c-di-AMP riboswitch aptamer (ydaO/yuaA leader): a 187-nucleotide RNA sequence from Terrabacter sp. MAHUQ-38. NCBI's taxonomy places the organism under Bacteria, Actinomycetota, Actinomycetes, Micrococcales, Terrabacter. The base pairs follow the family's consensus structure.
[Rfam]
RNA sequence: CGAGAGACAGCAACCUUGUGACAGGAGCGGAGGAACCACACGUUUCUCCGGGCGUCCGGCGCAACGACUCCGGACGUCCUUGGGGUGAAGUACUCGCCCGGCUCGCGACCCGUCGCGGACCGGGGGCAGCACCGGGCACCUUUCCGCCCGAACCCGACAGCUAACUUCGUAGGCGCGGAGAGGUACA
Numbered sequence: 001c002g003a004g005a006g007a008c009a010g011c012a013a014c015c016u017u018g019u020g021a022c023a024g025g026a027g028c029g030g031a032g033g034a035a036c037c038a039c040a041c042g043u044u045u046c047u048c049c050g051g052g053c054g055u056c057c058g059g060c061g062c063a064a065c066g067a068c069u070c071c072g073g074a075c076g077u078c079c080u081u082g083g084g085g086u087g088a089a090g091u092a093c094u095c096g097c098c099c100g101g102c103u104c105g106c107g108a109c110c111c112g113u114c115g116c117g118g119a120c121c122g123g124g125g126g127c128a129g130c131a132c133c134g135g136g137c138a139c140c141u142u143u144c145c146g147c148c149c150g151a152a153c154c155c156g157a158c159a160g161c162u163a164a165c166u167u168c169g170u171a172g173g174c175g176c177g178g179a180g181a182g183g184u185a186c187a
Stems, first nucleotide, its partner, number of pairs: 001024001027170006037082002083155003091131001093129002134149004
Rfam describes the family as follows. This family represents a conserved RNA structure found upstream of the ydaO and yuaA genes in Bacillus subtilis and related genes in other bacteria.